This 90-nucleotide RNA sequence from Georgenia subflava belongs to the Rfam family "ZMP/ZTP riboswitch aptamer (pfl RNA motif)".

RNA sequence: CGCCCCCGUCGCGACUGGCGCCAUCAGGUGGACCACCACCGGGGAGCGACGAGAGCAGGACCCCUGAGGUCGUCCGCCUGGGCCGAGGGU
Numbered sequence: 001c002g003c004c005c006c007c008g009u010c011g012c013g014a015c016u017g018g019c020g021c022c023a024u025c026a027g028g029u030g031g032a033c034c035a036c037c038a039c040c041g042g043g044g045a046g047c048g049a050c051g052a053g054a055g056c057a058g059g060a061c062c063c064c065u066g067a068g069g070u071c072g073u074c075c076g077c078c079u080g081g082g083c084c085g086a087g088g089g090u
Base pairs, nucleotide, nucleotide: 003055005053007051008050009049010048011047012046015043016042017078018077019076020075028039029038030037031036068084069083070082071081
The organism belongs to Georgenia, within Bacteria. The base pairs follow the family's consensus structure, which is taken from published work.